Ruegeria cis8 sRNA: a 128-nucleotide sequence from Castellaniella defragrans. The family has 2 seed sequences and 138 matches in Rfam 15.1. The organism belongs to Castellaniella defragrans, within Bacteria. By type it is a small RNA. For this family Rfam cites "Experimental Identification of Small Non-Coding RNAs in the Model Marine Bacterium Ruegeria pomeroyi DSS-3" (Rivers et al., Front Microbiol, 2016).
RNA sequence: ACUUUCAGCAGCUUGAUCCAGAGCCCGAUCAGCGGCAGAUUGAGCACCAGCAGCAUCAGGUUGCCGAUCCACAUCGAGACGAUCAGGGCCCAGAACAGCUGCGGGUGGUUGCUCAUCACCUGCGGGCC
Numbered sequence: 001a002c003u004u005u006c007a008g009c010a011g012c013u014u015g016a017u018c019c020a021g022a023g024c025c026c027g028a029u030c031a032g033c034g035g036c037a038g039a040u041u042g043a044g045c046a047c048c049a050g051c052a053g054c055a056u057c058a059g060g061u062u063g064c065c066g067a068u069c070c071a072c073a074u075c076g077a078g079a080c081g082a083u084c085a086g087g088g089c090c091c092a093g094a095a096c097a098g099c100u101g102c103g104g105g106u107g108g109u110u111g112c113u114c115a116u117c118a119c120c121u122g123c124g125g126g127c128c
Base pairs, nucleotide, nucleotide: 005016006015007014008013027127029125030124033122034121035120038114039113043109045107046106047105048104050102051101052100053099054098056097061093062092063091068086073083074082075081